[Rfam]
RNA sequence: GCCGAUUUCAGUGUGUGUUCGUUCCUUGAGCGACGCUGAAAGGUAUUGCGCCAGACAACCAAAAGUUGUGCUGUUGCGCGUUGUAGGUAUUAGUUAAGCCUUUAGCUAAUAGACGGGAUACUUAAGCCGUAAAGUCGGCAUACAUAUGGGACCCAACA
Numbered sequence: 001g002c003c004g005a006u007u008u009c010a011g012u013g014u015g016u017g018u019u020c021g022u023u024c025c026u027u028g029a030g031c032g033a034c035g036c037u038g039a040a041a042g043g044u045a046u047u048g049c050g051c052c053a054g055a056c057a058a059c060c061a062a063a064a065g066u067u068g069u070g071c072u073g074u075u076g077c078g079c080g081u082u083g084u085a086g087g088u089a090u091u092a093g094u095u096a097a098g099c100c101u102u103u104a105g106c107u108a109a110u111a112g113a114c115g116g117g118a119u120a121c122u123u124a125a126g127c128c129g130u131a132a133a134g135u136c137g138g139c140a141u142a143c144a145u146a147u148g149g150g151a152c153c154c155a156a157c158a
Base pairs, nucleotide, nucleotide: 006041007040008039009038010037011036012035013034014033048079049078050077051076052073053072055069056068057067088111089110090109091108092107093106094105095104096103097102126139127138128137129136
RNA: DABA-DC-AT RNA